[Rfam]
RNA sequence: AUUGUAACGGGUUCUGGUAACUCCACCACCGCUGGCGUUAUAUUUUCACAUCCGCCUGCAGUGGAAGAGUUCCCUUCACUCGUUGCAUG
Numbered sequence: 001a002u003u004g005u006a007a008c009g010g011g012u013u014c015u016g017g018u019a020a021c022u023c024c025a026c027c028a029c030c031g032c033u034g035g036c037g038u039u040a041u042a043u044u045u046u047c048a049c050a051u052c053c054g055c056c057u058g059c060a061g062u063g064g065a066a067g068a069g070u071u072c073c074c075u076u077c078a079c080u081c082g083u084u085g086c087a088u089g
Stems, first nucleotide, its partner, number of pairs: 003087010016074002019071005026064002029061001031059002034056004
Record summary:
This 89-nucleotide sequence from Diaphorina citri belongs to the Rfam family "mir-2765 microRNA precursor family". Its family is annotated with RISC complex and miRNA-mediated post-transcriptional gene silencing in the Gene Ontology.